[Rfam]
RNA sequence: UGACGGGGGCCCGCACAAGCGGCGGAGCAUGCGGAUUAAUUCGAUGCAACGCGAAGAACCUUACCAAGGCUUGACAUGUGCCGGGAGGGCGCGGAGACGCGUCUGCCUUCGGGCCGGUUCACAGGUGGUGCAUGGUUGUCGUCAGCUCGUGUCGUGAGAUGUUGGGUUAAGUCCCGCAACGAGCGCAACCCUUGUCCCGUGUUGCCAGCGCGUUGUGGCGGGGACUCACGGGGGACUGCCGGGGUCAACUCGGAGGAAGGUGGGGACGACGUCAAAUCAUCAUGCCCCUUAUGCCUUGGGCUUCACGCAUGCUACAAUGGCCGGUACAGAGGGUGGCGAUGCCGUGAGGCGGAGCGAAUCUCGUAAAGCCGGUCUCAGUUCGGAUCGGGGUCUGCAACUCGGGCCCGUGAAGUCGGAGUCGCUAGUAAUCGCAGAUCAGCAACGCUGCGGUGAAUACGUUCUCGGGCCUUGUACACACCGCCCGUCACGUCACGAAAGUCGGCGACGCCCGAAGCCCGUGGCUCUGCUUGUGCGGGGAGCGGUCGAAGGCGGGGUUGGCGAUUGGGACGAAGUCGUAACAAGG
Dot-bracket structure: (((((.(((((((.((..((((((.((((((((((....((((........))))........(((((((......((.(((((..(((((((....))))))).((....))))))).))..((.((((..((((((.((...(((((((((....)))..((((......))))..)))))).....((((.(((((((...((..(((......)))))....)))))))..((.(((((.....))))).)).....))))....)).).)))...))))))))....)))))))...)).)))))))).)...(((((((.....(((..((...(((....)))...))....))).....)))))))......(....((((.((........)).))))....).....))))).....(((((((..........)))))))......))...)))))))))).))..(.(..((...((((.(((..((((((..((((....(.((((..(((.((....)).))).)))).)...))))..))))))..))).))))....))...)..).
RNA: Bacterial small subunit ribosomal RNA, nucleotides 919 to 1501
Organism: Peptidiphaga gingivicola